Shown here is a 372-nucleotide RNA sequence from Lachancea fermentati, a member of the family "Small nucleolar RNA snR37". The literature on the family includes a 2004 paper in Nucleic Acids Res by Schattner et al., "Genome-wide searching for pseudouridylation guide snoRNAs: analysis of the Saccharomyces cerevisiae genome". The match comes from Rfam's covariance-model search (279 bits). Pairs were carried over by alignment from the consensus structure, which was predicted with WAR.
RNA sequence: AUCAUCAGUAGUGGUUAAUACUAUCUCAAGAUAAUAUUAAUUACAUUACAACAUAGAAACCGAUGUACUAGUUGGUUUGUAUUUAAGAGUUUAAUGAGGACCAGUCUCCUUCGGGAAGCUGUGAAUCGUUAUAUUCAAGUUAAUACUGGUAUGGGCCGACUGGUACAGCAACACAACCCAUAGCUGAGUGAAUUUUGACCACCCCCAAACAAGGUGGGCACAAUUUUCAUUUCGUUUCCGGUUUCUUAGAUAAAUAUCUGCUAUGAGAGAGUUUGGGUCUGAAGAUUCAAAGGAGCAUGUUUCCAGAGGAUGGCGUAAAGCUAUCUGAGAGUUUGGAAUUUCCAUUGUGCCCUUUCUCAUGGUAGGACAACU
Numbered sequence: 001a002u003c004a005u006c007a008g009u010a011g012u013g014g015u016u017a018a019u020a021c022u023a024u025c026u027c028a029a030g031a032u033a034a035u036a037u038u039a040a041u042u043a044c045a046u047u048a049c050a051a052c053a054u055a056g057a058a059a060c061c062g063a064u065g066u067a068c069u070a071g072u073u074g075g076u077u078u079g080u081a082u083u084u085a086a087g088a089g090u091u092u093a094a095u096g097a098g099g100a101c102c103a104g105u106c107u108c109c110u111u112c113g114g115g116a117a118g119c120u121g122u123g124a125a126u127c128g129u130u131a132u133a134u135u136c137a138a139g140u141u142a143a144u145a146c147u148g149g150u151a152u153g154g155g156c157c158g159a160c161u162g163g164u165a166c167a168g169c170a171a172c173a174c175a176a177c178c179c180a181u182a183g184c185u186g187a188g189u190g191a192a193u194u195u196u197g198a199c200c201a202c203c204c205c206c207a208a209a210c211a212a213g214g215u216g217g218g219c220a221c222a223a224u225u226u227u228c229a230u231u232u233c234g235u236u237u238c239c240g241g242u243u244u245c246u247u248a249g250a251u252a253a254a255u256a257u258c259u260g261c262u263a264u265g266a267g268a269g270a271g272u273u274u275g276g277g278u279c280u281g282a283a284g285a286u287u288c289a290a291a292g293g294a295g296c297a298u299g300u301u302u303c304c305a306g307a308g309g310a311u312g313g314c315g316u317a318a319a320g321c322u323a324u325c326u327g328a329g330a331g332u333u334u335g336g337a338a339u340u341u342c343c344a345u346u347g348u349g350c351c352c353u354u355u356c357u358c359a360u361g362g363u364a365g366g367a368c369a370a371c372u
Stems, first nucleotide, its partner, number of pairs: 008049006014041007022033004055246007066165018087136003092131006104119002107116003138147003186232007195223003199217005258365005264359008272291008293350001296349004302337006308326007